[Rfam]
RNA sequence: CUCUUAUCCAGAGAGAGGGAGGGAACAGGCCUGAUGAUCUCUCGGCAACCCCCUGUUGGGUUUGAAGAACCCAUGGGAAGGUGCCAAUUCCUGCAGAGCUGUACACUGCUCUGACAGAUGAGAG
Numbered sequence: 001c002u003c004u005u006a007u008c009c010a011g012a013g014a015g016a017g018g019g020a021g022g023g024a025a026c027a028g029g030c031c032u033g034a035u036g037a038u039c040u041c042u043c044g045g046c047a048a049c050c051c052c053c054u055g056u057u058g059g060g061u062u063u064g065a066a067g068a069a070c071c072c073a074u075g076g077g078a079a080g081g082u083g084c085c086a087a088u089u090c091c092u093g094c095a096g097a098g099c100u101g102u103a104c105a106c107u108g109c110u111c112u113g114a115c116a117g118a119u120g121a122g123a124g
Stems, first nucleotide, its partner, number of pairs: 001124008013043005021032003026093004044085004049081002051077003089116001094113006